Tryptophan operon leader: a 93-nucleotide sequence from Zophobihabitans entericus. The family's RNA type in Rfam is cis-regulatory leader. On this family, see Kolter and Yanofsky, Annu Rev Genet 1982: "Attenuation in amino acid biosynthetic operons". Lineage of the source: Bacteria > Pseudomonadati > Gammaproteobacteria > Orbales > Zophobihabitans. Rfam's curators write: At least 6 amino acid operons are known to be regulated by attenuation. In each a leader sequence of 150-200 bp is found upstream of the first gene in the operon. This leader sequence can assume two different secondary structures known as the terminator and the anti-terminator structure. In each case the leader also codes for very short peptide sequence that is rich in the end product amino acid of the operon.
RNA sequence: AACUUAUGGUGGCACAUCACACUUAACGGGUGAUGUGUUUUGCUGUACUUAGAUUUUAUCUUACACAAGCCCGCAAAUUGCGGGCUUUUUUAU
Number, nucleotide and partner (000 for none) at each position: 001a000002a000003c000004u000005u000006a000007u000008g000009g043010u042011g041012g040013c000014a036015c035016a034017u033018c032019a000020c030021a000022c028023u000024u000025a000026a000027c000028g022029g000030g020031u000032g018033a017034u016035g015036u014037g000038u000039u000040u012041u011042g010043c009044u000045g000046u000047a000048c000049u000050u000051a000052g000053a000054u000055u000056u000057u000058a000059u000060c000061u000062u000063a000064c000065a000066c000067a000068a086069g085070c084071c083072c082073g081074c080075a000076a000077a000078u000079u000080g074081c073082g072083g071084g070085c069086u068087u000088u000089u000090u000091u000092a000093u000